[Rfam]
RNA: Bacterial large signal recognition particle RNA
Organism: Lachnospiraceae bacterium oral taxon 500
RNA sequence: AUGCACAGCCGGGGAGAUAGCGGUGUCCUGUACCUACAAUCCGCUUUAGUAGGGGUGAUGUCUUGCCUAGGGUGUUCAUUUGCUUAGCAGCCUAAAGCAAGUGGUGUUGAAGUGGGGGUCCCCACGCAAUGGAAACUUUCGAACCGUGUCAGGACAGGAAUGUAGCAGCACUAAGGAGGACCUUUCAUGUGCCGUGAGAUAGCCGCCACAGAGCUAACUGCUUUAGUAGCGUUUGUGAAUGGCAUUCGAAGCAAGGCGUGCGU
Numbered sequence: 001a002u003g004c005a006c007a008g009c010c011g012g013g014g015a016g017a018u019a020g021c022g023g024u025g026u027c028c029u030g031u032a033c034c035u036a037c038a039a040u041c042c043g044c045u046u047u048a049g050u051a052g053g054g055g056u057g058a059u060g061u062c063u064u065g066c067c068u069a070g071g072g073u074g075u076u077c078a079u080u081u082g083c084u085u086a087g088c089a090g091c092c093u094a095a096a097g098c099a100a101g102u103g104g105u106g107u108u109g110a111a112g113u114g115g116g117g118g119u120c121c122c123c124a125c126g127c128a129a130u131g132g133a134a135a136c137u138u139u140c141g142a143a144c145c146g147u148g149u150c151a152g153g154a155c156a157g158g159a160a161u162g163u164a165g166c167a168g169c170a171c172u173a174a175g176g177a178g179g180a181c182c183u184u185u186c187a188u189g190u191g192c193c194g195u196g197a198g199a200u201a202g203c204c205g206c207c208a209c210a211g212a213g214c215u216a217a218c219u220g221c222u223u224u225a226g227u228a229g230c231g232u233u234u235g236u237g238a239a240u241g242g243c244a245u246u247c248g249a250a251g252c253a254a255g256g257c258g259u260g261c262g263u
Stems, first nucleotide, its partner, number of pairs: 001263006008056003011029004016024001018022001033053005062255005068249001070247006077241007086232001090230002093225006101218002103215003112209004117204003121198001123196004127189002130187005136179005146171004154163003
Dot-bracket structure: ((((((.(((((((.(.(...).).))))...(((((...........)))))))).....(((((.(.((((((.(((((((..(...((.((((((..(((((......((((.(((.(.((((((.(((((.(((((.....((((....(((....)))....))))...)))))...)))))))...)))).)...))).))))...))).)).))))))...)).)..))))))))))))).).)))))..))))))